[Rfam]
RNA sequence: AAAAUACUCAGCCUUCUCUUCCCGGUUCUUCCCAGAGUCGGGAAAAGCUGGGUUGAGAGGGCGAAAAAAAAAUAAA
Dot-bracket structure: .............(((((..(((((...(((((......)))))...)))))..))))).................
RNA: mir-320 microRNA precursor family
Organism: Aotus nancymaae